The record is a 68-nucleotide RNA from Alkalibacterium pelagium, which matches "L17 ribosomal protein downstream element" in Rfam.

RNA sequence: UGAGCGUUACGAUGAUGGACUAGUUUCCAAGUGUCUAGCUCAGUUUCCCUCGAAGGAUUCCUUCGGGG
Dot-bracket structure: .((((.....(((...(((......)))....)))..))))......(((((((((...)))))))))

NCBI's taxonomy places the organism under Bacteria, Bacillota, Lactobacillales, Carnobacteriaceae, Alkalibacterium.